[Rfam]
This 237-nucleotide sequence from Arctia plantaginis belongs to the Rfam family "RNase MRP". RNase MRP is an enzymatically active ribonucleoprotein with two distinct roles in eukaryotes. The base pairs follow the family's consensus structure, which is taken from published work. The family is grouped with related families in Rfam's "RNaseP clan". The family has 66 seed sequences and 3,510 matches in Rfam 15.1. Rfam classes the family as a ribozyme.

RNA sequence: AGGUUCUAACCAGUUCAGUCGUCGGGGUUACACACAGAGUUCAUGUAACUUAGUUACCCUGUGGAAAGUCCCCGGAGAUAGGACGGAAAGCGUCAUACCGUGAAGGUGGAGGCCGGGAAGGCACGGUAGGGGAGGGUUACCCGCGCCGUGUCGCUCCCGUAGCGUUGCUCAGAGCACAGUAAAUACUGAUAGGACAAUACAUCGUCUAACCAAAUGGGGCUUACUCGGUUUAGAACU
Dot-bracket structure: .((((((((((...(((((...((((((........(((((.....)))))....))))))....[[[.[[[[........((((.....)))).(..(......)..).(..(((((..(..((((......((....))...))))...)..)))))...).....................)))))..((((.(....).))))........]]]]]]]....))).)))))))